[Rfam]
Small nucleolar RNA SNORD56: a 73-nucleotide RNA from Ornithorhynchus anatinus.
On this family, see Galardi et al., Mol Cell Biol 2002: "Purified box C/D snoRNPs are able to reproduce site-specific 2'-O-methylation of target RNA in vitro".
RNA sequence: CCGCCGUGAUGGAACGAUUUUUCGUCAACAGCAGUUCACCCCCGUGAGUGUUGAUAAGCCUGUGUCUGAGCGA
Number, nucleotide and partner (000 for none) at each position: 001c000002c072003g071004c070005c000006g000007u000008g026009a025010u024011g023012g000013a000014a000015c000016g000017a000018u000019u000020u000021u000022u000023c011024g010025u009026c008027a000028a000029c000030a000031g000032c000033a000034g000035u000036u000037c000038a000039c000040c000041c000042c000043c000044g000045u000046g000047a000048g000049u000050g000051u000052u000053g000054a000055u000056a000057a000058g000059c000060c000061u000062g000063u000064g000065u000066c000067u000068g000069a000070g004071c003072g002073a000

Its family is annotated with nucleolus and RNA processing in the Gene Ontology.